[Rfam]
RNA sequence: GACUUAUAUUCUGUAGCAAGGUUAACCGUAUAGGGAAGCCGUAGGGAAACCGAGUCUUAACUGGGCGUUGAGUUGCAGGGUAUAGACCCGAAACCGGGCGAUCUAACCAUGAGCAGGUUGAAGAUUGAGUAACAUCAAUUGGAGGACCGAACCCACUUAUGUUGAAAAAUGAGGGGAUGACUUGUGGCUAGGAGUGAAAGGCUAAUCAAGCCCGGAGAUAGCUGGUU
Numbered sequence: 001g002a003c004u005u006a007u008a009u010u011c012u013g014u015a016g017c018a019a020g021g022u023u024a025a026c027c028g029u030a031u032a033g034g035g036a037a038g039c040c041g042u043a044g045g046g047a048a049a050c051c052g053a054g055u056c057u058u059a060a061c062u063g064g065g066c067g068u069u070g071a072g073u074u075g076c077a078g079g080g081u082a083u084a085g086a087c088c089c090g091a092a093a094c095c096g097g098g099c100g101a102u103c104u105a106a107c108c109a110u111g112a113g114c115a116g117g118u119u120g121a122a123g124a125u126u127g128a129g130u131a132a133c134a135u136c137a138a139u140u141g142g143a144g145g146a147c148c149g150a151a152c153c154c155a156c157u158u159a160u161g162u163u164g165a166a167a168a169a170u171g172a173g174g175g176g177a178u179g180a181c182u183u184g185u186g187g188c189u190a191g192g193a194g195u196g197a198a199a200g201g202c203u204a205a206u207c208a209a210g211c212c213c214g215g216a217g218a219u220a221g222c223u224g225g226u227u
Base pairs, nucleotide, nucleotide: 005084006083007082008081009080010079011078012077013076014075015074016073017072020040021039022038023037026034027033044051045050054066055065056064057063087225088224090222094215095214096213097212098211099210103191104190105189107187108186109185110184111183112182113181114179116148117147118146119145123140124139125138126137127136128135152176153175154174156173157172158171159170160169193203194202195201
The record is a 227-nucleotide part of an RNA from Idiomarina loihiensis, which matches "Bacterial large subunit ribosomal RNA" in Rfam.
Pairs were carried over by alignment from the consensus structure, which is taken from published work.